[Rfam]
RNA sequence: GGUUCUAUAGUGUAACGGUUAGCACGGUGAUUUUUGAUGUCGCAAAUUUGGGUUCGAUUCCCAAUAGGACCU
Numbered sequence: 001g002g003u004u005c006u007a008u009a010g011u012g013u014a015a016c017g018g019u020u021a022g023c024a025c026g027g028u029g030a031u032u033u034u035u036g037a038u039g040u041c042g043c044a045a046a047u048u049u050g051g052g053u054u055c056g057a058u059u060c061c062c063a064a065u066a067g068g069a070c071c072u
Base pairs, nucleotide, nucleotide: 001071002070003069004068005067006066007065010025011024012023013022027043028042029041030040031039048064049063050062051061052060
RNA: tRNA
Organism: Penicillium occitanis